[Rfam]
RNA sequence: CUGAGCCGAGGAUGAUUUAACGUUAUCCCUGUCUGAAUGGCCUUCCUUGGUGAAGAGUUCUGACUUGCUGAGGCUCAG
Numbered sequence: 001c002u003g004a005g006c007c008g009a010g011g012a013u014g015a016u017u018u019a020a021c022g023u024u025a026u027c028c029c030u031g032u033c034u035g036a037a038u039g040g041c042c043u044u045c046c047u048u049g050g051u052g053a054a055g056a057g058u059u060c061u062g063a064c065u066u067g068c069u070g071a072g073g074c075u076c077a078g
Stems, first nucleotide, its partner, number of pairs: 001078007
Shown here is a 78-nucleotide sequence from Cnephaeus nilssonii, a member of the family "Small nucleolar RNA R38". It is annotated as a C/D-box small nucleolar RNA. The family's consensus secondary structure was predicted with PFOLD. A reference for the family is Chen et al. (2003), "The high diversity of snoRNAs in plants: identification and comparative study of 120 snoRNA genes from Oryza sativa", Nucleic Acids Res. Rfam links the family to the GO terms nucleolus and RNA processing. Rfam describes the family as follows. snoR38 is a C/D box small nucleolar RNA conserved across yeast, human, Arabidopsis and rice. It is encoded in the intron of elongation factor-1 gamma in both pombe and cerevisiae. snoR38 guides the methylation of 2'-O-ribose sites in 28S rRNA. NCBI's taxonomy places the organism under Eukaryota, Metazoa, Chordata, Yangochiroptera, Cnephaeus.